Overview
The record is a 112-nucleotide RNA sequence from Punica granatum, which matches "Small nucleolar RNA snoR100" in Rfam. The family's consensus secondary structure was predicted with WAR. It scores 111 bits against the family's covariance model. A reference for the family is Marker et al. (2002), "Experimental RNomics: identification of 140 candidates for small non-messenger RNAs in the plant Arabidopsis thaliana", Curr Biol. The family's RNA type in Rfam is H/ACA-box small nucleolar RNA.
[Rfam]
RNA sequence: GAAUGAAGGAAGCAUGGUAAUGUGCACGGAUAUUCUGUUCUUGGGUCAACAUGUCUGCUCUCUCUGAUGCUUUAUUGGCUUUGAUUUGAGGGCCUGGUUGCGACCUACAUUC
Numbered sequence: 001g002a003a004u005g006a007a008g009g010a011a012g013c014a015u016g017g018u019a020a021u022g023u024g025c026a027c028g029g030a031u032a033u034u035c036u037g038u039u040c041u042u043g044g045g046u047c048a049a050c051a052u053g054u055c056u057g058c059u060c061u062c063u064c065u066g067a068u069g070c071u072u073u074a075u076u077g078g079c080u081u082u083g084a085u086u087u088g089a090g091g092g093c094c095u096g097g098u099u100g101c102g103a104c105c106u107a108c109a110u111u112c
Stems, first nucleotide, its partner, number of pairs: 012025004043095005053085003057079003